Annotation:
Rfam assigns this 77-nucleotide RNA from Parnassius apollo to the family "Mammalian CPEB3 ribozyme". On this family, see Salehi-Ashtiani et al., Science 2006: "A genomewide search for ribozymes reveals an HDV-like sequence in the human CPEB3 gene". Pairs were carried over by alignment from the consensus structure, which is taken from published work. It scores 55 bits against the family's covariance model. The organism belongs to Parnassius, within Eukaryota.

[Rfam]
RNA sequence: UUCUAAAAAACGAGGGUCAUUGUAGAAGCGUGCUCGUCGCGACCCCUGCCAGCCCUUUUCAGGGCUGCAAUUCUACA
Numbered sequence: 001u002u003c004u005a006a007a008a009a010a011c012g013a014g015g016g017u018c019a020u021u022g023u024a025g026a027a028g029c030g031u032g033c034u035c036g037u038c039g040c041g042a043c044c045c046c047u048g049c050c051a052g053c054c055c056u057u058u059u060c061a062g063g064g065c066u067g068c069a070a071u072u073c074u075a076c077a
Base pairs, nucleotide, nucleotide: 014045015044016043017042018041021077022076023075024074025073026072027071028040029039030038050067051066052065053064054063055062056061